[Rfam]
RNA sequence: GAGGAGGCGCAGGCGGUUGCGGGCAUUUUGCCUGAGGAAAGUCCGGGCUUCCGAAAGACCGAACCUGCUGGGUAACGCCCAGUGCGCGCGAGCGUGAGGAGAGUGCCACAGAAACAUACCGCCAAUGGAAAGGACAGCUUGAGCCUUUCACAGGUAAGGGUGCAAAGGUGCGGUAAGAGCGCACCAGCAACAUCGAGAGGUGUUGGCUCGGUAAACCCCGGUUGGAAGCAAGGUCGAAGGAGCAAAGGUUGGUCUUUUUCCGGCUCCGGGUAGGAGUGAGUUUCACUUCUGCGUAUUCCGCAUGAGGUGUCUGGUGACAGGCAUCCCAGAUAGAUAACCGCCCUCUGGAUGAGCGAUCGUCUAGGGAACAGAACCCGGCUUAUGUCCGCCUCUUCCCUU
Numbered sequence: 001g002a003g004g005a006g007g008c009g010c011a012g013g014c015g016g017u018u019g020c021g022g023g024c025a026u027u028u029u030g031c032c033u034g035a036g037g038a039a040a041g042u043c044c045g046g047g048c049u050u051c052c053g054a055a056a057g058a059c060c061g062a063a064c065c066u067g068c069u070g071g072g073u074a075a076c077g078c079c080c081a082g083u084g085c086g087c088g089c090g091a092g093c094g095u096g097a098g099g100a101g102a103g104u105g106c107c108a109c110a111g112a113a114a115c116a117u118a119c120c121g122c123c124a125a126u127g128g129a130a131a132g133g134a135c136a137g138c139u140u141g142a143g144c145c146u147u148u149c150a151c152a153g154g155u156a157a158g159g160g161u162g163c164a165a166a167g168g169u170g171c172g173g174u175a176a177g178a179g180c181g182c183a184c185c186a187g188c189a190a191c192a193u194c195g196a197g198a199g200g201u202g203u204u205g206g207c208u209c210g211g212u213a214a215a216c217c218c219c220g221g222u223u224g225g226a227a228g229c230a231a232g233g234u235c236g237a238a239g240g241a242g243c244a245a246a247g248g249u250u251g252g253u254c255u256u257u258u259u260c261c262g263g264c265u266c267c268g269g270g271u272a273g274g275a276g277u278g279a280g281u282u283u284c285a286c287u288u289c290u291g292c293g294u295a296u297u298c299c300g301c302a303u304g305a306g307g308u309g310u311c312u313g314g315u316g317a318c319a320g321g322c323a324u325c326c327c328a329g330a331u332a333g334a335u336a337a338c339c340g341c342c343c344u345c346u347g348g349a350u351g352a353g354c355g356a357u358c359g360u361c362u363a364g365g366g367a368a369c370a371g372a373a374c375c376c377g378g379c380u381u382a383u384g385u386c387c388g389c390c391u392c393u394u395c396c397c398u399u
Stems, first nucleotide, its partner, number of pairs: 001395009011383001012342007020034006039381003043378005048228004057283002060280001062223003066220002068082005083097001084095004098218002103216002105212003119159002121155003126150004167185006187207001188205007232299002244290001246288002276286003306325008
Dot-bracket structure: (((((((((.((((((((.((((((...))))))....[[[.[[[[[((((.....[[.[.(((.(((((((.....)))))(((((....)))).)((...(((((...........(((((..((((.................))))..)))..)).......((((((.......)))))).((((((((....))))))).)..)))..))))))))).))))...((..........(.((............................(((.].]]))))).).......))......((((((((....))))))))..........)))))))...............................]]]]]]]].)...)))))))))....

This 399-nucleotide RNA from Thermocoleostomius sinensis belongs to the Rfam family "Bacterial RNase P class A". Pairs were carried over by alignment from the consensus structure, which is taken from published work. Lineage of the source: Bacteria > Cyanophyceae > Oculatellales > Thermocoleostomius > Thermocoleostomius sinensis. The family's RNA type in Rfam is ribozyme. Rfam describes the family as follows. Ribonuclease P (RNase P) is a ubiquitous endoribonuclease, found in archaea, bacteria and eukarya as well as chloroplasts and mitochondria.